[Rfam]
RNA: Antisense RNA which regulates isiA expression
RNA sequence: GGUAGCCCCAAACCAUACCUAAGUCUAUAUUAGGUUCAACCUUCCGUACAGCUCCUAUAGCUGUGUCGUAAAUUCCAUGACGCUUCGCCCACUCGACAAAUGCAAUAACACCUAGGCCAAGGAAGAUCAGAUGAUGUCCAAGGAUAAGGGUUAGCUGCUUAGGAUCAUCCCA
Numbered sequence: 001g002g003u004a005g006c007c008c009c010a011a012a013c014c015a016u017a018c019c020u021a022a023g024u025c026u027a028u029a030u031u032a033g034g035u036u037c038a039a040c041c042u043u044c045c046g047u048a049c050a051g052c053u054c055c056u057a058u059a060g061c062u063g064u065g066u067c068g069u070a071a072a073u074u075c076c077a078u079g080a081c082g083c084u085u086c087g088c089c090c091a092c093u094c095g096a097c098a099a100a101u102g103c104a105a106u107a108a109c110a111c112c113u114a115g116g117c118c119a120a121g122g123a124a125g126a127u128c129a130g131a132u133g134a135u136g137u138c139c140a141a142g143g144a145u146a147a148g149g150g151u152u153a154g155c156u157g158c159u160u161a162g163g164a165u166c167a168u169c170c171c172a
Stems, first nucleotide, its partner, number of pairs: 130169006138163002141160002
Dot-bracket structure: .................................................................................................................................((((((..((.((................)).))))))))...